This 35-nucleotide sequence belongs to the Rfam family "DUF805b RNA".
[Rfam]
RNA sequence: CGGGCGGAACCGAAAAGCCGGAAAUAGAGUAGGAA
Numbered sequence: 001c002g003g004g005c006g007g008a009a010c011c012g013a014a015a016a017g018c019c020g021g022a023a024a025u026a027g028a029g030u031a032g033g034a035a
Stems, first nucleotide, its partner, number of pairs: 003019003010033002